Shown here is a 102-nucleotide RNA from Caulobacter sp. Root655, a member of the family "Cauldobacter sRNA CC3552". The source organism's lineage runs through Bacteria, Pseudomonadati, Pseudomonadota, Caulobacterales and Caulobacter. Rfam classes the family as a small RNA.

Nucleotides: 102
Stems, first nucleotide, its partner, number of pairs: 001055010012021002028045007081102006088095002
Number, partner (000 for none) and nucleotide at each position: 001055g002054g003053a004052g005051g006050c007049g008048g009047c010046g011000a012021c013020g014000c015000c016000c017000c018000c019000c020013c021012g022000a023000c024000u025000u026000g027000a028045g029044g030043u031042u032041g033040a034039c035000g036000a037000a038000a039034g040033u041032c042031a043030g044029c045028c046010u047009g048008c049007u050006g051005c052004c053003u054002c055001c056000g057000c058000a059000c060000c061000c062000c063000c064000a065000u066000u067000u068000u069000c070000a071000a072000a073000g074000c075000c076000u077000u078000u079000c080000g081102a082101g083100g084099c085098g086097g087000u088095c089094c090000u091000g092000a093000g094089g095088g096000u097086c098085c099084g100083c101082c102081u